The record is an 88-nucleotide RNA sequence from Dechloromonas sp. TW-R-39-2, which matches "Burkholderia RNA 7 (anti-hemB)" in Rfam.

RNA sequence: UCUCCCGCUUCACCUCCCUGAGCGGGCGCUCUGACCACGUCAGGGCAUUUUUGCCCCCGGCCCCCCCUUAGCCGGGGGCACUUUGUUU
Number, nucleotide and partner (000 for none) at each position: 001u000002c000003u000004c026005c025006c024007g023008c022009u021010u000011c000012a000013c000014c000015u000016c000017c000018c000019u000020g000021a009022g008023c007024g006025g005026g004027c000028g046029c045030u044031c043032u042033g041034a040035c000036c000037a000038c000039g000040u034041c033042a032043g031044g030045g029046c028047a000048u000049u000050u000051u000052u000053g079054c078055c077056c076057c075058c074059g073060g072061c000062c000063c000064c000065c000066c000067c000068u000069u000070a000071g000072c060073c059074g058075g057076g056077g055078g054079c053080a000081c000082u000083u000084u000085g000086u000087u000088u000
Overview:
Rfam describes the family as follows. This RNA motif was identified by computational search in b-proteobacteria Burkholderia. Co-purified with Hfq, expression confirmed by Northern blot. Its family is annotated with bacterial biofilm matrix and protein binding in the Gene Ontology. The family's consensus secondary structure is taken from published work.